[Rfam]
RNA sequence: CGUGGGAUUCGUCCCCCACCGACCCUACCAGGGCAUGCGUCCCGAGCAAUCGGAAGGUGUGAAGCCCCUGGGACAAAGCGGAAAGACGCAGGAUUCGAUGUAUCGAACCGCCAGGGUGAAUCGGGCAUGGUGAAUGUAACGUGAACUGUUGUAAGG
Numbered sequence: 001c002g003u004g005g006g007a008u009u010c011g012u013c014c015c016c017c018a019c020c021g022a023c024c025c026u027a028c029c030a031g032g033g034c035a036u037g038c039g040u041c042c043c044g045a046g047c048a049a050u051c052g053g054a055a056g057g058u059g060u061g062a063a064g065c066c067c068c069u070g071g072g073a074c075a076a077a078g079c080g081g082a083a084a085g086a087c088g089c090a091g092g093a094u095u096c097g098a099u100g101u102a103u104c105g106a107a108c109c110g111c112c113a114g115g116g117u118g119a120a121u122c123g124g125g126c127a128u129g130g131u132g133a134a135u136g137u138a139a140c141g142u143g144a145a146c147u148g149u150u151g152u153a154a155g156g
Base pairs, nucleotide, nucleotide: 002019003018004017005016006015029070030069031068032067033066034061035060036059037058038057040055042053043052044051045050084095085094087092096123097122098121099120108115109114127149128148129147130146131145
RNA: Group II catalytic intron D1-D4-7
Organism: methanogenic archaeon ISO4-H5